[Rfam]
RNA sequence: UUGCAGGUAAAAGUUACAAUAUGGCUGUGAAGUGCCUAUAUUGUCGUUCCCCCUGCUCAAAACAAAAUUGUUUCAUACUAUCCCUGUCUUAACUGGUCUGUAGUUAGACAGGGACGCUUGGUCUCAAACAU
Numbered sequence: 001u002u003g004c005a006g007g008u009a010a011a012a013g014u015u016a017c018a019a020u021a022u023g024g025c026u027g028u029g030a031a032g033u034g035c036c037u038a039u040a041u042u043g044u045c046g047u048u049c050c051c052c053c054u055g056c057u058c059a060a061a062a063c064a065a066a067a068u069u070g071u072u073u074c075a076u077a078c079u080a081u082c083c084c085u086g087u088c089u090u091a092a093c094u095g096g097u098c099u100g101u102a103g104u105u106a107g108a109c110a111g112g113g114a115c116g117c118u119u120g121g122u123c124u125c126a127a128a129c130a131u
Stems, first nucleotide, its partner, number of pairs: 003056005016044007023036003083112004088107002091104001